[Rfam]
RNA sequence: AUGGGAACAAUGCCGAAUCCCAAAGGGUACGGAGGAACCGUUUAUGGGGUGAAUCCUUUUGGUAGGGAUAUCCUUGCCCGAACCCGUCAGCUAACUCCGGAGGCAAAAGGAAAGGAGAA
Numbered sequence: 001a002u003g004g005g006a007a008c009a010a011u012g013c014c015g016a017a018u019c020c021c022a023a024a025g026g027g028u029a030c031g032g033a034g035g036a037a038c039c040g041u042u043u044a045u046g047g048g049g050u051g052a053a054u055c056c057u058u059u060u061g062g063u064a065g066g067g068a069u070a071u072c073c074u075u076g077c078c079c080g081a082a083c084c085c086g087u088c089a090g091c092u093a094a095c096u097c098c099g100g101a102g103g104c105a106a107a108a109g110g111a112a113a114g115g116a117g118a119a
Stems, first nucleotide, its partner, number of pairs: 011105004019027002030099005039046002047085003055062002065079003
The family of this 119-nucleotide RNA from Desulforamulus reducens is "c-di-AMP riboswitch aptamer (ydaO/yuaA leader)". Gene Ontology terms of the family: regulation of gene expression and cyclic-di-AMP binding. Rfam's curators put it in the seed alignment. This family represents a conserved RNA structure found upstream of the ydaO and yuaA genes in Bacillus subtilis and related genes in other bacteria.